[Rfam]
RNA sequence: AAAAUGAGCAUCUGACAUGAGCAGCACACAUAGGGUAGCUUGAUUGCUCUGCAUGUGGAGUGGGCAUCAUGAUUUUAGAAGCAUCAUUUUUUGGUAUCUGGACAGCUGGUGAUCCCUGGUGUUGGCCUGCAC
Number, nucleotide and partner (000 for none) at each position: 001a000002a000003a000004a000005u000006g000007a000008g082009c081010a000011u079012c078013u026014g025015a000016c000017a000018u000019g000020a000021g000022c000023a000024g000025c014026a013027c055028a054029c000030a000031u051032a050033g049034g048035g047036u046037a045038g044039c000040u000041u000042g000043a000044u038045u037046g036047c035048u034049c033050u032051g031052c000053a000054u028055g027056u077057g076058g075059a074060g073061u000062g000063g000064g000065c000066a000067u000068c000069a000070u000071g000072a000073u060074u059075u058076u057077a056078g012079a011080a000081g009082c008083a000084u000085c000086a000087u000088u000089u000090u000091u000092u000093g000094g000095u000096a000097u000098c000099u000100g130101g000102a128103c000104a000105g126106c125107u124108g123109g122110u000111g000112a120113u119114c118115c000116c000117u000118g114119g113120u112121g000122u109123u108124g107125g106126c105127c000128u102129g000130c100131a000132c000
Notes:
Rfam assigns this 132-nucleotide RNA sequence from Phyllostomus discolor to the family "U11 spliceosomal RNA". Lineage of the source: Eukaryota > Metazoa > Eumetazoa > Bilateria > Phyllostomus. Rfam classes the family as a spliceosomal small nuclear RNA. Pairs were carried over by alignment from the consensus structure, which is taken from published work.